[Rfam]
RNA sequence: UCUGCUCACAGACGAUGAGCCAAUGCGGCAUGUAAAAGGCUGACAUUCUAUGUCUUUACGUGCCACAUUGUCUCCUUGUCUGCUGUGUUUA
Numbered sequence: 001u002c003u004g005c006u007c008a009c010a011g012a013c014g015a016u017g018a019g020c021c022a023a024u025g026c027g028g029c030a031u032g033u034a035a036a037a038g039g040c041u042g043a044c045a046u047u048c049u050a051u052g053u054c055u056u057u058a059c060g061u062g063c064c065a066c067a068u069u070g071u072c073u074c075c076u077u078g079u080c081u082g083c084u085g086u087g088u089u090u091a
Base pairs, nucleotide, nucleotide: 004088005087007085008084009082010081011080012079013078014077015076017074018073019072021070022069023068024067025066027064028063029062030061031060032059033058034057035056036055038054039053040052
This 91-nucleotide RNA sequence from Branchiostoma belcheri belongs to the Rfam family "mir-4861 microRNA precursor family". Rfam links the family to the GO terms miRNA-mediated post-transcriptional gene silencing and RISC complex.